[Rfam]
RNA sequence: UGGUCAUUACCAAAGCUACUAUUUAUGCAGUUUAUAGUUUGCUGUGGACAUGACCAAAAAGUAACACUUCAAAUAGGCCUUUGUUGUUCCAAUAUGAGUACAAUGCUGGGCCUUUUUGAAGAACAA
Numbered sequence: 001u002g003g004u005c006a007u008u009a010c011c012a013a014a015g016c017u018a019c020u021a022u023u024u025a026u027g028c029a030g031u032u033u034a035u036a037g038u039u040u041g042c043u044g045u046g047g048a049c050a051u052g053a054c055c056a057a058a059a060a061g062u063a064a065c066a067c068u069u070c071a072a073a074u075a076g077g078c079c080u081u082u083g084u085u086g087u088u089c090c091a092a093u094a095u096g097a098g099u100a101c102a103a104u105g106c107u108g109g110g111c112c113u114u115u116u117u118g119a120a121g122a123a124c125a126a
Stems, first nucleotide, its partner, number of pairs: 003054005010047003027042004069119004076112004

Rfam assigns this 126-nucleotide RNA from Xenopus laevis to the family "Small nucleolar RNA SNORA32". Gene Ontology terms of the family: RNA processing and nucleolus. Rfam describes the family as follows. ACA32 is a member of the H/ACA class of snoRNA that guide the sites of modification of uridines to pseudouridines. NCBI's taxonomy places the organism under Eukaryota, Chordata, Teleostomi, Tetrapoda, Xenopus. The base pairs follow the family's consensus structure, which was predicted with RNAfold. It scores 65 bits against the family's covariance model.